[Rfam]
The record is an 83-nucleotide RNA from Strigamia maritima, which matches "mir-263 microRNA precursor family" in Rfam. The source organism's lineage runs through Eukaryota, Eumetazoa, Myriapoda, Chilopoda and Strigamia. Gene Ontology terms of the family: RISC complex and miRNA-mediated post-transcriptional gene silencing. Pairs were carried over by alignment from the consensus structure, which was predicted with RNAalifold.
RNA sequence: CACUCGCUCUUAAUGGCACUGGAAGAAUUCACGGGUCAUUUUGGUUUACACCGUGAUUUCUCUGGUGCUAUGAAGAGAGAGUU
Numbered sequence: 001c002a003c004u005c006g007c008u009c010u011u012a013a014u015g016g017c018a019c020u021g022g023a024a025g026a027a028u029u030c031a032c033g034g035g036u037c038a039u040u041u042u043g044g045u046u047u048a049c050a051c052c053g054u055g056a057u058u059u060c061u062c063u064g065g066u067g068c069u070a071u072g073a074a075g076a077g078a079g080a081g082u083u
Stems, first nucleotide, its partner, number of pairs: 003081003007077004013071006020064003025059003029056006